[Rfam]
RNA: mir-34 microRNA precursor family
RNA sequence: GGCGUCUUGGCAGUGUGGUUAGCUGGUUGUGUUAUAUGAAAACACGACCGCUAUCGGCACUGCAAUUACGAC
Numbered sequence: 001g002g003c004g005u006c007u008u009g010g011c012a013g014u015g016u017g018g019u020u021a022g023c024u025g026g027u028u029g030u031g032u033u034a035u036a037u038g039a040a041a042a043c044a045c046g047a048c049c050g051c052u053a054u055c056g057g058c059a060c061u062g063c064a065a066u067u068a069c070g071a072c
Stems, first nucleotide, its partner, number of pairs: 003070003010063001012061005018055001020053003024050008
Dot-bracket structure: ..(((....(.(((((.(.(((.((((((((...........))))))))))).).))))).)....)))..